[Rfam]
RNA sequence: UAUUAAAAAAAGGGGGUCAUUGCAGAAGCGUGCUCGUCGCGACCCCUCCUAGCCCUUUCCAGGGCUGCAAUUAUACA
Numbered sequence: 001u002a003u004u005a006a007a008a009a010a011a012g013g014g015g016g017u018c019a020u021u022g023c024a025g026a027a028g029c030g031u032g033c034u035c036g037u038c039g040c041g042a043c044c045c046c047u048c049c050u051a052g053c054c055c056u057u058u059c060c061a062g063g064g065c066u067g068c069a070a071u072u073a074u075a076c077a
Stems, first nucleotide, its partner, number of pairs: 013046006021077002024074001026072002028040003050067007
RNA: Mammalian CPEB3 ribozyme
Organism: Parnassius apollo